[Rfam]
RNA sequence: UUGUGUGGAUGGUGUUCAGCACCAAGAACAGGUGUGUUUAUUUGUGUGGAUGAUGUUCAGCACCAAGGACAGGUGUGUUUACUU
Numbered sequence: 001u002u003g004u005g006u007g008g009a010u011g012g013u014g015u016u017c018a019g020c021a022c023c024a025a026g027a028a029c030a031g032g033u034g035u036g037u038u039u040a041u042u043u044g045u046g047u048g049g050a051u052g053a054u055g056u057u058c059a060g061c062a063c064c065a066a067g068g069a070c071a072g073g074u075g076u077g078u079u080u081a082c083u084u
Stems, first nucleotide, its partner, number of pairs: 001072001002069001010065007018057004023052002026047001028045007
Dot-bracket structure: ((.......(((((((.((((.((.(.(((((((....))))))).)...)).)))).)))))))...)..)............
Annotation
Rfam assigns this 84-nucleotide RNA from Branchiostoma lanceolatum to the family "mir-2060 microRNA precursor family". Gene Ontology terms of the family: RISC complex and miRNA-mediated post-transcriptional gene silencing. A search with the family's covariance model found it, with a score of 71 bits.